[Rfam]
RNA sequence: CGGGGAAAGAAGACCCUAUUAAGCUUAACUCUAGUUUGAUAUUGUGAAAAGACAUAGGAGGUGUAGAAUAGGUAGGAGCUUUAGCGCUGGUGAAAUACUACUACUCCUAUUGUUUUUUUACUUAUUUAAUGAAGUGGGGCUGGAUUUACGUCUAACUUCUAGUUUUAAGGUCCUUUGUGGGCUGACCUAGGUUAAAGACAUUGUUAGGUAGGGAGUUUGGCUGGGGCAGCAUAUCUGUUAAACUAUAACGCAGGUAUCCUAAGGGGGGCUUAUAGAGAAUAGAAAUCUCUAGUAGAACAAAAGGGUAAAAGUCCCCUUAAUUUUGAUUUUUAGUGUGAAUACAAACUAUAAAAGUGUAGCCUAUUAAUCCUUUAGUCCCUCGAAAUUUGAGGCUAGAGGUGCUAGAAAAGUUACUAUAGGGAUAACUGGCUUGUGGCGGCUAAGCGUUUAUAGCGACGUCGCUUUUUGAUCCUUUGAUGUUAGCUCUUCCUAUUAUACUGAAGCAGAAUUCAGUAAGCGUUAGAUUGUUUACCUACUAAUAGGGAAUGUAAGCUAGGUUUAGACUGUCGUGAGAUAGGUUAGUUUUACCCUA
Numbered sequence: 001c002g003g004g005g006a007a008a009g010a011a012g013a014c015c016c017u018a019u020u021a022a023g024c025u026u027a028a029c030u031c032u033a034g035u036u037u038g039a040u041a042u043u044g045u046g047a048a049a050a051g052a053c054a055u056a057g058g059a060g061g062u063g064u065a066g067a068a069u070a071g072g073u074a075g076g077a078g079c080u081u082u083a084g085c086g087c088u089g090g091u092g093a094a095a096u097a098c099u100a101c102u103a104c105u106c107c108u109a110u111u112g113u114u115u116u117u118u119u120a121c122u123u124a125u126u127u128a129a130u131g132a133a134g135u136g137g138g139g140c141u142g143g144a145u146u147u148a149c150g151u152c153u154a155a156c157u158u159c160u161a162g163u164u165u166u167a168a169g170g171u172c173c174u175u176u177g178u179g180g181g182c183u184g185a186c187c188u189a190g191g192u193u194a195a196a197g198a199c200a201u202u203g204u205u206a207g208g209u210a211g212g213g214a215g216u217u218u219g220g221c222u223g224g225g226g227c228a229g230c231a232u233a234u235c236u237g238u239u240a241a242a243c244u245a246u247a248a249c250g251c252a253g254g255u256a257u258c259c260u261a262a263g264g265g266g267g268g269c270u271u272a273u274a275g276a277g278a279a280u281a282g283a284a285a286u287c288u289c290u291a292g293u294a295g296a297a298c299a300a301a302a303g304g305g306u307a308a309a310a311g312u313c314c315c316c317u318u319a320a321u322u323u324u325g326a327u328u329u330u331u332a333g334u335g336u337g338a339a340u341a342c343a344a345a346c347u348a349u350a351a352a353a354g355u356g357u358a359g360c361c362u363a364u365u366a367a368u369c370c371u372u373u374a375g376u377c378c379c380u381c382g383a384a385a386u387u388u389g390a391g392g393c394u395a396g397a398g399g400u401g402c403u404a405g406a407a408a409a410g411u412u413a414c415u416a417u418a419g420g421g422a423u424a425a426c427u428g429g430c431u432u433g434u435g436g437c438g439g440c441u442a443a444g445c446g447u448u449u450a451u452a453g454c455g456a457c458g459u460c461g462c463u464u465u466u467u468g469a470u471c472c473u474u475u476g477a478u479g480u481u482a483g484c485u486c487u488u489c490c491u492a493u494u495a496u497a498c499u500g501a502a503g504c505a506g507a508a509u510u511c512a513g514u515a516a517g518c519g520u521u522a523g524a525u526u527g528u529u530u531a532c533c534u535a536c537u538a539a540u541a542g543g544g545a546a547u548g549u550a551a552g553c554u555a556g557g558u559u560u561a562g563a564c565u566g567u568c569g570u571g572a573g574a575u576a577g578g579u580u581a582g583u584u585u586u587a588c589c590c591u592a
Base pairs, nucleotide, nucleotide: 003591004590005589007586008585015420016419017418018417020416021415022412023411024410025409026408028216029215030214031213035208036207037206038205039204040203041202044121045120046119047118048117049116050115051114052113053112054110055109056108057107058106059105060104071102072101073100074099075098078085079084125196126195127194128193129192135189136188137187138186143152144151169183170182171181172180173179219232220230221229222228233255234254235253236252237251238250258359264316265315266314267313268312269311270296271295273291274290275289276288277287278286297306298305321345322344323343326340327339328338329337347356348355349354370398371397372396373395374394375393378392379391380390381389429470431468433467435463436462437461438460439459440458444454445453481556482554483553484552485551486548487545488544489543490542491541494519497514498513499512500511501510502509521535522534523533525531562580563579564578565577566575567574568573

The family of this 592-nucleotide part of an RNA from Colletotrichum tanaceti is "Eukaryotic large subunit ribosomal RNA". Pairs were carried over by alignment from the consensus structure, which is taken from published work. Gene Ontology terms of the family: structural constituent of ribosome and ribosome. Its Rfam clan is "LSU clan". The match comes from Rfam's covariance-model search (2857 bits). The source organism's lineage runs through Eukaryota, Opisthokonta, Sordariomycetes, Glomerellales and Colletotrichum destructivum species complex.